[Rfam]
RNA: Mason-Pfizer monkey virus packaging signal
RNA sequence: UGGCGCCCAAUGUGGGGUCUGGAUUCUGGGGACAACGUGAGGGAGACGACGAAGGAAAAAGGGGUGCACACCCGCUUAAAUAAUUCGGAGACGUCGCGGGAGCAUGCCGCGACCGAGCCGAAGGUAAUUGGUCAUGUAAAUCAUGGGGCAAGAAUUAAGGCAGCAUCAUAUUUAUGUGGUACAGUUAAGAGAAUAUCUACAGGCAAGAGGAGUAAGGUUACAACUGAGGAUUUAUUUCAUUUCUUUGAUUUUGUAAAGGACCCCA
Numbered sequence: 001u002g003g004c005g006c007c008c009a010a011u012g013u014g015g016g017g018u019c020u021g022g023a024u025u026c027u028g029g030g031g032a033c034a035a036c037g038u039g040a041g042g043g044a045g046a047c048g049a050c051g052a053a054g055g056a057a058a059a060a061g062g063g064g065u066g067c068a069c070a071c072c073c074g075c076u077u078a079a080a081u082a083a084u085u086c087g088g089a090g091a092c093g094u095c096g097c098g099g100g101a102g103c104a105u106g107c108c109g110c111g112a113c114c115g116a117g118c119c120g121a122a123g124g125u126a127a128u129u130g131g132u133c134a135u136g137u138a139a140a141u142c143a144u145g146g147g148g149c150a151a152g153a154a155u156u157a158a159g160g161c162a163g164c165a166u167c168a169u170a171u172u173u174a175u176g177u178g179g180u181a182c183a184g185u186u187a188a189g190a191g192a193a194u195a196u197c198u199a200c201a202g203g204c205a206a207g208a209g210g211a212g213u214a215a216g217g218u219u220a221c222a223a224c225u226g227a228g229g230a231u232u233u234a235u236u237u238c239a240u241u242u243c244u245u246u247g248a249u250u251u252u253g254u255a256a257a258g259g260a261c262c263c264c265a
Stems, first nucleotide, its partner, number of pairs: 006031003012026001014024001036048003084122005092115002095111005128151003133147001135145002156199002160194001207246006215233005